[Rfam]
RNA: mir-274 microRNA precursor family
Organism: Scaptodrosophila lebanonensis
RNA sequence: CCUGUUGCAGUUUCAUUUUGUGACCGACACUAACGGGUAGUUGCCGAUGUGUUCCAUUACUCGUUUCUGCGAUCACAAAUUCUGAAACUGCCACAA
Numbered sequence: 001c002c003u004g005u006u007g008c009a010g011u012u013u014c015a016u017u018u019u020g021u022g023a024c025c026g027a028c029a030c031u032a033a034c035g036g037g038u039a040g041u042u043g044c045c046g047a048u049g050u051g052u053u054c055c056a057u058u059a060c061u062c063g064u065u066u067c068u069g070c071g072a073u074c075a076c077a078a079a080u081u082c083u084g085a086a087a088c089u090g091c092c093a094c095a096a
Stems, first nucleotide, its partner, number of pairs: 003095003007091004013085003017079007025071002028069002032065008